[Rfam]
RNA sequence: GUGAUUUUAGCUCAAUGGUAGAGCGCUUCUUUGUGGCAGAAGAUAUCUCAGUUCGAUUCUGUGAUUUCACC
Numbered sequence: 001g002u003g004a005u006u007u008u009a010g011c012u013c014a015a016u017g018g019u020a021g022a023g024c025g026c027u028u029c030u031u032u033g034u035g036g037c038a039g040a041a042g043a044u045a046u047c048u049c050a051g052u053u054c055g056a057u058u059c060u061g062u063g064a065u066u067u068c069a070c071c
Stems, first nucleotide, its partner, number of pairs: 001070004007064001010024004026042005047063001049061003
Rfam assigns this 71-nucleotide sequence from Kwoniella mangrovensis to the family "tRNA". From the family's description: Transfer RNA (tRNA) molecules are approximately 80 nucleotides in length. The base pairs follow the family's consensus structure, which is taken from published work. NCBI's taxonomy places the organism under Eukaryota, Basidiomycota, Tremellomycetes, Tremellales, Kwoniella mangrovensis. It scores 53 bits against the family's covariance model.